Rfam assigns this 130-nucleotide sequence from Candidatus Apopatosoma intestinale to the family "Ribosomal protein L10 leader". The base pairs follow the family's consensus structure, which was predicted with CMfinder. From the family's description: This family is a putative r-protein leader autoregulatory structure found in B. subtilis and other low-GC Gram-positive bacteria. It is located in the 5' untranslated regions of mRNAs encoding ribosomal proteins L10 and L12 (rplJ-rplL). A Rho-independent transcription terminator structure that is probably involved in regulation is included at the 3' end. It scores 65 bits against the family's covariance model. By type it is a cis-regulatory leader. For this family Rfam cites "Diverse mechanisms for regulating ribosomal protein synthesis in Escherichia coli" (Zengel and Lindahl, Prog Nucleic Acid Res Mol Biol, 1994).

[Rfam]
RNA sequence: GUAUAAUAUAUAGGCAAUCCGAAGACAGCAGGUUUUUGUAAAAGCUGAGCUAUCCUGCCGAGGAGAGAUUUAUAAAGCGAUUUAUUGUCUUUCCGUAUGCUUCAUUGCGGAAAGAUUUUUUAUUUUCAAG
Numbered sequence: 001g002u003a004u005a006a007u008a009u010a011u012a013g014g015c016a017a018u019c020c021g022a023a024g025a026c027a028g029c030a031g032g033u034u035u036u037u038g039u040a041a042a043a044g045c046u047g048a049g050c051u052a053u054c055c056u057g058c059c060g061a062g063g064a065g066a067g068a069u070u071u072a073u074a075a076a077g078c079g080a081u082u083u084a085u086u087g088u089c090u091u092u093c094c095g096u097a098u099g100c101u102u103c104a105u106u107g108c109g110g111a112a113a114g115a116u117u118u119u120u121u122a123u124u125u126u127c128a129a130g
Base pairs, nucleotide, nucleotide: 028058029057030056031055032054088115089114090113091112092111093110094109095108096107097106